Shown here is a 105-nucleotide RNA from Flavobacterium psychrophilum, a member of the family "Flavo-1 RNA".
RNA sequence: UUGUAGCCCCGAUAGUAGUGGAAAUCCUUUUUUUUGUUUGAGUUCUCGCUUUUUUUGCGAGGAACUUAAGCAAAAAAAAGAUUGAAACGGAUAGCGGGAGGUUUG
Numbered sequence: 001u002u003g004u005a006g007c008c009c010c011g012a013u014a015g016u017a018g019u020g021g022a023a024a025u026c027c028u029u030u031u032u033u034u035u036g037u038u039u040g041a042g043u044u045c046u047c048g049c050u051u052u053u054u055u056u057g058c059g060a061g062g063a064a065c066u067u068a069a070g071c072a073a074a075a076a077a078a079a080g081a082u083u084g085a086a087a088c089g090g091a092u093a094g095c096g097g098g099a100g101g102u103u104u105g
Stems, first nucleotide, its partner, number of pairs: 009097003013093002018088002023083004029078018
The source organism's lineage runs through Bacteria, Pseudomonadati, Bacteroidota, Flavobacteriales and Flavobacterium psychrophilum.